[Rfam]
RNA sequence: ACAGUACAAACUGAGCAGGCCGAGGGCAAAUGCCUAUGGAGCCGGGUCACACAAGUGACAGUGGAUAUCACAUCCGCGGGACAGUA
Numbered sequence: 001a002c003a004g005u006a007c008a009a010a011c012u013g014a015g016c017a018g019g020c021c022g023a024g025g026g027c028a029a030a031u032g033c034c035u036a037u038g039g040a041g042c043c044g045g046g047u048c049a050c051a052c053a054a055g056u057g058a059c060a061g062u063g064g065a066u067a068u069c070a071c072a073u074c075c076g077c078g079g080g081a082c083a084g085u086a
Stems, first nucleotide, its partner, number of pairs: 010085004016080001018043003022037001024035004046059005061077006
A member of the RNA family "NiCo (Nickel/Cobalt) riboswitch aptamer" from Acetivibrio ethanolgignens, 86 nucleotides long.
The family's consensus secondary structure is taken from published work.
The family is grouped with related families in Rfam's "NiCo_riboswitches".